Makes More Granules Regulator RNA (mmgR): a 79-nucleotide sequence from Aestuariivirga litoralis. Pairs were carried over by alignment from the consensus structure. The family has 87 seed sequences and 1,791 matches in Rfam 15.1. Rfam's curators write: SuhB later renamed mmgR (makes more granules regulator) was a putative non-coding RNA found multiple times in the Agrobacterium tumefaciens genome and related alpha-proteobacteria. Other non-coding RNAs uncovered in the same analysis include: speF, ybhL, metA, and serC.Several studies inSinorhizobium meliloti showed that suhB element is indeed a non-coding RNA:firstly it was detected on Northern blot and called Sm8RNA, secondly in an RNAseq study referred to as SmelC689.The mutant phenotype's (strain lacking the small RNA) cytoplasm contains higher content of polyhydroxybutyrate (PBH)storage granules than wild type strain. The match comes from Rfam's covariance-model search (62 bits). Taxonomically the source falls in Aestuariivirga (Bacteria, Pseudomonadota, Hyphomicrobiales, Aestuariivirgaceae).
[Rfam]
RNA sequence: UCUUGCAGCCCUUCCUGGGCGUUUCCUCCCUAGACUUGGGCCGGUCACCUUGGUGCAUCGGCCCUUUUUUCUUUGGCGA
Numbered sequence: 001u002c003u004u005g006c007a008g009c010c011c012u013u014c015c016u017g018g019g020c021g022u023u024u025c026c027u028c029c030c031u032a033g034a035c036u037u038g039g040g041c042c043g044g045u046c047a048c049c050u051u052g053g054u055g056c057a058u059c060g061g062c063c064c065u066u067u068u069u070u071c072u073u074u075g076g077c078g079a
Base pairs, nucleotide, nucleotide: 008020009019010018011017038064039063040062041061042060043059044058045057